Rfam assigns this 223-nucleotide RNA from Pseudomonas sp. M47T1 to the family "sRNA regulator of biofilms A". The source organism's lineage runs through Bacteria, Gammaproteobacteria, Pseudomonadales, Pseudomonadaceae and Pseudomonas. About the family: Important for biofilm formation and pathogenicity. Bacterial strain with deleted SrbA had reduced biofilm mass. As the ability to form biofilms can contribute to the ability a pathogen to thrive within the host, the C. elegans hosts infected with the srbA deleted strain displayed significantly lower mortality rate than the wild-type strain.
RNA sequence: AUCAGGGGCCCUGGAAAGGGCCUUCGGACCGGACUCUAACCUACCCACCUGAGCCGAUUCGUGUCUGUAACGCCCACAAGGCAGCCUGACGAGAUUGCGACUGGAACGAAGAAGUUGUCCCGAGGGACGGAAGCGCAUCUGGCAACACGGCACCCCCUGUACGCUCGCACCACCGCCACGAUCGGUGGGUGUUCGCGCCCAGGCCAUGCCUGGCCAACCUGCC
Numbered sequence: 001a002u003c004a005g006g007g008g009c010c011c012u013g014g015a016a017a018g019g020g021c022c023u024u025c026g027g028a029c030c031g032g033a034c035u036c037u038a039a040c041c042u043a044c045c046c047a048c049c050u051g052a053g054c055c056g057a058u059u060c061g062u063g064u065c066u067g068u069a070a071c072g073c074c075c076a077c078a079a080g081g082c083a084g085c086c087u088g089a090c091g092a093g094a095u096u097g098c099g100a101c102u103g104g105a106a107c108g109a110a111g112a113a114g115u116u117g118u119c120c121c122g123a124g125g126g127a128c129g130g131a132a133g134c135g136c137a138u139c140u141g142g143c144a145a146c147a148c149g150g151c152a153c154c155c156c157c158u159g160u161a162c163g164c165u166c167g168c169a170c171c172a173c174c175g176c177c178a179c180g181a182u183c184g185g186u187g188g189g190u191g192u193u194c195g196c197g198c199c200c201a202g203g204c205c206a207u208g209c210c211u212g213g214c215c216a217a218c219c220u221g222c223c
Stems, first nucleotide, its partner, number of pairs: 005024008028058001030056002035053001037051001060149002066144002072082003084136001090135002120130002158163001168191003171187005199213003203209002